A member of the RNA family "Plastid-psbA-3 3UTR RNA" from Hevea brasiliensis, 59 nucleotides long. From the family's description: Plastid psbA-3 is a non-coding RNA (ncRNA) present in plastids. A search with the family's covariance model found it, with a score of 50 bits. Lineage of the source: Eukaryota > Embryophyta > eudicotyledons > Gunneridae > Hevea. By type it is a cis-regulatory element. The base pairs follow the family's consensus structure, which was predicted with LocARNA.
RNA sequence: AACUGAGCAAUAUCCAAUCCUCUUGAUAGAACAAGAAAUUGGAUAUUGCUCCUUUUUUU
Numbered sequence: 001a002a003c004u005g006a007g008c009a010a011u012a013u014c015c016a017a018u019c020c021u022c023u024u025g026a027u028a029g030a031a032c033a034a035g036a037a038a039u040u041g042g043a044u045a046u047u048g049c050u051c052c053u054u055u056u057u058u059u
Stems, first nucleotide, its partner, number of pairs: 001055002005051010021036005
Dot-bracket structure: ((..((((((((((......(((((......))))).....))))))))))..))....